[Rfam]
RNA sequence: AAAAAAUCAUUGAAAGAUCGAGUAUGUUAUAGUCCAUCUAAGAAGAGAGGAAUUUCCGAGGCUGAGAGAAAUUCCAGAUGAAGGAUAACAGAAGGCUAAUCUGGAGUGCAGCUAAAAUACUGCCGUCUUGCCACGUUACAGGCACCCAAGAGUUAGAUUGUCUUUUUGAUUGUCUAAAAUCAGGGUGGUACCGCGAGUAAAUCUCUCGUCCCUGCA
Numbered sequence: 001a002a003a004a005a006a007u008c009a010u011u012g013a014a015a016g017a018u019c020g021a022g023u024a025u026g027u028u029a030u031a032g033u034c035c036a037u038c039u040a041a042g043a044a045g046a047g048a049g050g051a052a053u054u055u056c057c058g059a060g061g062c063u064g065a066g067a068g069a070a071a072u073u074c075c076a077g078a079u080g081a082a083g084g085a086u087a088a089c090a091g092a093a094g095g096c097u098a099a100u101c102u103g104g105a106g107u108g109c110a111g112c113u114a115a116a117a118u119a120c121u122g123c124c125g126u127c128u129u130g131c132c133a134c135g136u137u138a139c140a141g142g143c144a145c146c147c148a149a150g151a152g153u154u155a156g157a158u159u160g161u162c163u164u165u166u167u168g169a170u171u172g173u174c175u176a177a178a179a180u181c182a183g184g185g186u187g188g189u190a191c192c193g194c195g196a197g198u199a200a201a202u203c204u205c206u207c208g209u210c211c212c213u214g215c216a
Stems, first nucleotide, its partner, number of pairs: 008106001015102004025090006036079003051073006109122003124135003153177006182213004193209005
Dot-bracket structure: .......(......((((......((((((.....(((............((((((...........))))))...))).....))))))........))))...)..(((........))).(((......))).................((((((.............))))))....((((.......(((((.......)))))))))...

Background
This 216-nucleotide RNA from Heyndrickxia shackletonii belongs to the Rfam family "T-box leader". Taxonomically the source falls in Heyndrickxia (Bacteria, Bacillati, Bacillota, Bacillaceae). Rfam's curators write: Uncharged tRNA acts as the effector for transcription antitermination of genes in the T-box leader family. T-boxes are found upstream of many aminoacyl-tRNA synthetase genes and some amino acid biosynthetic genes usually in Gram-positive bacteria. The anticodon of a specific tRNA base pairs to a specifier sequence within the T-box motif, and the NCCA acceptor tail of the tRNA base pairs to a conserved bulge in the T-box antiterminator hairpin. A search with the family's covariance model found it, with a score of 98 bits. The family's consensus secondary structure is taken from published work.